[Rfam]
Rfam assigns this 193-nucleotide RNA from Parastagonospora nodorum to the family "U2 spliceosomal RNA". From the family's description: U2 is a small nuclear RNA (snRNA) component of the spliceosome (involved in pre-mRNA splicing). Complementary binding between U2 snRNA (in an area lying towards the 5' end but 3' to hairpin I) and the branchpoint sequence (BPS) of the intron results the bulging out of an unpaired adenosine, on the BPS, which initiates a nucleophilic attack at the intronic 5' splice site, thus starting the first of two transesterification reactions that mediate splicing. On this family, see Zwieb, Nucleic Acids Res 1997: "The uRNA database". The family is grouped with related families in Rfam's "U2 clan". Taxonomically the source falls in Parastagonospora nodorum (Eukaryota, Ascomycota, Pezizomycotina, Pleosporomycetidae). It is annotated as a spliceosomal small nuclear RNA.

RNA sequence: UCUCCUUCUCAGUUUGCCUUUUGGCUUAGAUCAAGUGUAGUAUCUGUUCUUUCUAGUUUAAUCGCUAGAACUUUCCUACGGGAAUUCACGAUUAUUCUUAUUUUUGCAACUGGUCAAUGGCUCACUGGGCUUGCCCAUAGUCACUGGCACUGUGUCGUUCCUCUCACACUACCUGGAAUGUACGCGACCCUUU
Dot-bracket structure: ......(((......(((....)))..)))....................((((((........)))))).(((((...)))))............................((((.(((.....((((....))))...))).))))..(((((..((((.............))))...))))).......
Numbered sequence: 001u002c003u004c005c006u007u008c009u010c011a012g013u014u015u016g017c018c019u020u021u022u023g024g025c026u027u028a029g030a031u032c033a034a035g036u037g038u039a040g041u042a043u044c045u046g047u048u049c050u051u052u053c054u055a056g057u058u059u060a061a062u063c064g065c066u067a068g069a070a071c072u073u074u075c076c077u078a079c080g081g082g083a084a085u086u087c088a089c090g091a092u093u094a095u096u097c098u099u100a101u102u103u104u105u106g107c108a109a110c111u112g113g114u115c116a117a118u119g120g121c122u123c124a125c126u127g128g129g130c131u132u133g134c135c136c137a138u139a140g141u142c143a144c145u146g147g148c149a150c151u152g153u154g155u156c157g158u159u160c161c162u163c164u165c166a167c168a169c170u171a172c173c174u175g176g177a178a179u180g181u182a183c184g185c186g187a188c189c190c191u192u193u
Stems, first nucleotide, its partner, number of pairs: 007030003016025003051070006072084005113148004118143003126137004151186005158178004